Group I catalytic intron: a 284-nucleotide sequence from Xylophilus sp. Leaf220. Lineage of the source: Bacteria > Pseudomonadati > Betaproteobacteria > Burkholderiales > Xylophilus. Its family is annotated with Group I intron splicing in the Gene Ontology. Group I catalytic introns are large self-splicing ribozymes.
Nucleotides: 284
Base pairs, nucleotide, nucleotide: 005028009025010024011023012022013021032041033040034039053206054205055204056203058201059200063107064106065105066104067103068102072098073097074096075095108153109152114147115146121141157263159262160261161260162259163258209249210248211247212246215243269282270281271280272279273278
Number, partner (000 for none) and nucleotide at each position: 001000c002000a003000g004000a005028g006000g007000a008000c009025u010024c011023a012022u013021c014000g015000a016000a017000a018000a019000a020000u021013g022012g023011u024010g025009a026000c027000c028005c029000u030000g031000g032041c033040g034039c035000g036000a037000g038000a039034g040033c041032g042000c043000c044000a045000g046000u047000g048000g049000a050000a051000a052000a053206c054205c055204g056203g057000g058201u059200g060000a061000a062000u063107u064106c065105a066104g067103g068102g069000a070000a071000a072098c073097c074096g075095u076000c077000g078000g079000c080000c081000u082000u083000g084000c085000a086000a087000g088000a089000g090000g091000u092000a093000u094000c095075a096074c097073g098072g099000c100000a101000a102068u103067c104066c105065u106064g107063a108153g109152c110000c111000g112000a113000g114147c115146c116000c117000g118000c119000c120000g121141a122000a123000g124000g125000c126000a127000g128000g129000u130000c131000g132000c133000g134000a135000g136000a137000c138000c139000g140000g141121u142000a143000g144000g145000c146115g147114g148000g149000a150000a151000g152109g153108u154000g155000c156000a157263g158000a159262g160261a161260c162259u163258a164000g165000g166000g167000u168000g169000c170000g171000a172000g173000g174000a175000g176000c177000c178000g179000a180000u181000c182000c183000g184000a185000u186000a187000a188000g189000c190000a191000c192000c193000c194000c195000a196000c197000g198000a199000g200059c201058g202000c203056c204055c205054g206053g207000c208000g209249c210248c211247c212246g213000a214000a215243c216000g217000c218000g219000c220000g221000a222000c223000a224000g225000a226000c227000c228000u229000u230000c231000a232000u233000g234000g235000u236000g237000g238000u239000c240000g241000c242000g243215g244000c245000g246212c247211g248210g249209g250000c251000g252000a253000u254000g255000a256000g257000a258163u259162a260161g261160u262159c263157c264000a265000g266000g267000g268000a269282g270281c271280a272279g273278g274000g275000a276000a277000a278273c279272c280271u281270g282269c283000a284000c